[Rfam]
Nucleotides: 094
Stems, first nucleotide, its partner, number of pairs: 001022006008016002029051008052092006059085007067078003
Number, partner (000 for none) and nucleotide at each position: 001022g002021c003020c004019a005018a006017g007000g008016c009015c010000u011000u012000u013000c014000a015009g016008g017006c018005u019004u020003g021002g022001u023000c024000g025000u026000a027000c028000g029051g030050g031049c032048g033047c034046c035045g036044g037000g038000a039000g040000g041000u042000g043000u044036c045035c046034g047033g048032u049031g050030c051029c052092c053091u054090u055089a056088u057087g058000g059085u060084u061083a062082c063081g064080u065079u066000g067078c068077u069076c070000a071000u072000u073000a074000u075000g076069g077068a078067g079065g080064a081063u082062g083061u084060a085059g086000c087057u088056a089055u090054g091053a092052g093000a094000u
Rfam assigns this 94-nucleotide sequence from Microvirga vignae to the family "Repression of heat shock gene expression (ROSE) element". By type it is an RNA thermoregulator. It scores 50 bits against the family's covariance model. The organism belongs to Microvirga, within Bacteria. Rfam's curators write: This family represents a 5' UTR cis-regulatory element found in heat shock mRNAs and is known as the ROSE (repression of heat shock gene expression) element. The ROSE element is a negative regulator of heat shock gene expression. Rfam links the family to the GO terms regulation of translation and response to temperature stimulus.